[Rfam]
RNA: MIR390 microRNA precursor family
Organism: Nyssa sinensis
RNA sequence: UAGACGGAUCUGUAAAGCUCAGGAGGGAUAGCACCAUGGAUGAUUCUCUUGAUGGUGGCUUCAUAUUUUGUUAAUCGUUUAUAGCGCUAUCCAUCCUGAGUUUCAUGGGUUCUUCAU
Numbered sequence: 001u002a003g004a005c006g007g008a009u010c011u012g013u014a015a016a017g018c019u020c021a022g023g024a025g026g027g028a029u030a031g032c033a034c035c036a037u038g039g040a041u042g043a044u045u046c047u048c049u050u051g052a053u054g055g056u057g058g059c060u061u062c063a064u065a066u067u068u069u070g071u072u073a074a075u076c077g078u079u080u081a082u083a084g085c086g087c088u089a090u091c092c093a094u095c096c097u098g099a100g101u102u103u104c105a106u107g108g109g110u111u112c113u114u115c116a117u
Stems, first nucleotide, its partner, number of pairs: 010108001016102009026092007034084001